[Rfam]
RNA sequence: AAUUGUAAAAAGCAAACCUAUCGAAAGGUAGGGACGCAAAGCCACAGGUCUAAAGUUGAAACACAAAUGACGGCUGGGUUGCCAAU
Numbered sequence: 001a002a003u004u005g006u007a008a009a010a011a012g013c014a015a016a017c018c019u020a021u022c023g024a025a026a027g028g029u030a031g032g033g034a035c036g037c038a039a040a041g042c043c044a045c046a047g048g049u050c051u052a053a054a055g056u057u058g059a060a061a062c063a064c065a066a067a068u069g070a071c072g073g074c075u076g077g078g079u080u081g082c083c084a085a086u
Stems, first nucleotide, its partner, number of pairs: 012037002017032006040080004045076003048071003057063002

The family of this 86-nucleotide sequence from Thermoanaerobacteraceae bacterium SP2 is "c-di-GMP-I riboswitch aptamer". The match comes from Rfam's covariance-model search (78 bits). NCBI's taxonomy places the organism under Bacteria, Bacillati, Clostridia, Thermoanaerobacterales, Thermoanaerobacteraceae. GEMM was predicted in a large-scale screen for bacterial structured RNA regulatory elements. Genes associated with GEMM are involved in a diverse array of functions, including chemotaxis regulation, signal transduction, secretion and chitin.